[Rfam]
RNA sequence: UAGAGAAACAUCAUUGAGUGCAGCGUUGAUGAAGUUUCACUCUCAUCUCAGGUAGAUGCUUAAUUUAUAGUGUUAUUGUCAUCGACACUGCACUCAAUCAUGUUUUUC
Dot-bracket structure: .....((((((.(((((((((((.((((.(((..............................................))).)))).))))))))))).))))))...
Rfam assigns this 108-nucleotide RNA sequence from Glycine max to the family "MIR397 microRNA precursor family". The literature on the family includes a 2009 paper in Plant Cell by Wu et al., "Rice MicroRNA effector complexes and targets". Its family is annotated with RISC complex and miRNA-mediated post-transcriptional gene silencing in the Gene Ontology. The family's consensus secondary structure was predicted with WAR.